[Rfam]
RNA sequence: ACUCAACGAGAAUCUAUUAUAAAGGAUAAGUCUUAGUUGCUAAAGCGAGCCGUCUAGAACGGAUACUUGAUCAGCUAGUUAGUCCUAAACCUGUAAUAAUGGAGUUU
Numbered sequence: 001a002c003u004c005a006a007c008g009a010g011a012a013u014c015u016a017u018u019a020u021a022a023a024g025g026a027u028a029a030g031u032c033u034u035a036g037u038u039g040c041u042a043a044a045g046c047g048a049g050c051c052g053u054c055u056a057g058a059a060c061g062g063a064u065a066c067u068u069g070a071u072c073a074g075c076u077a078g079u080u081a082g083u084c085c086u087a088a089a090c091c092u093g094u095a096a097u098a099a100u101g102g103a104g105u106u107u
Stems, first nucleotide, its partner, number of pairs: 023086005034077005043068003050062004
6S-Flavo RNA: a 107-nucleotide RNA from Polaribacter aquimarinus. It scores 107 bits against the family's covariance model. Rfam classes the family as a small RNA. The family's consensus secondary structure is taken from published work. Taxonomically the source falls in Polaribacter (Bacteria, Pseudomonadati, Bacteroidota, Flavobacteriaceae).